[Rfam]
RNA: Small nucleolar RNA Z278
RNA sequence: GCCAGUGAUGAUUAGUCUGCAAAAUGGAUGUCCUGUGGACUCAAGUCCCUGUUUCAGGGAGAACCUACUUGAGGAAACAUGGUACAUAAUAUGACAUCAUUUGAUAAAACUGAGGC
Numbered sequence: 001g002c003c004a005g006u007g008a009u010g011a012u013u014a015g016u017c018u019g020c021a022a023a024a025u026g027g028a029u030g031u032c033c034u035g036u037g038g039a040c041u042c043a044a045g046u047c048c049c050u051g052u053u054u055c056a057g058g059g060a061g062a063a064c065c066u067a068c069u070u071g072a073g074g075a076a077a078c079a080u081g082g083u084a085c086a087u088a089a090u091a092u093g094a095c096a097u098c099a100u101u102u103g104a105u106a107a108a109a110c111u112g113a114g115g116c
Stems, first nucleotide, its partner, number of pairs: 001116003047059005